[Rfam]
RNA sequence: GGUGGCAAGUUUGAGGCCAUAACAGAAGCGCCUGCAGCACAGCCUGUCGGAUUCCAAUGAAUCUGCAAAUUCAGCU
Numbered sequence: 001g002g003u004g005g006c007a008a009g010u011u012u013g014a015g016g017c018c019a020u021a022a023c024a025g026a027a028g029c030g031c032c033u034g035c036a037g038c039a040c041a042g043c044c045u046g047u048c049g050g051a052u053u054c055c056a057a058u059g060a061a062u063c064u065g066c067a068a069a070u071u072c073a074g075c076u
Base pairs, nucleotide, nucleotide: 015044016043017042021076023074025072026071027070028040030038048065049064050063051062052061053060054059

Shown here is a 76-nucleotide RNA from Alligator mississippiensis, a member of the family "Mammalian CPEB3 ribozyme".
Lineage of the source: Eukaryota > Euteleostomi > Amniota > Sauria > Alligator.
Pairs were carried over by alignment from the consensus structure, which is taken from published work.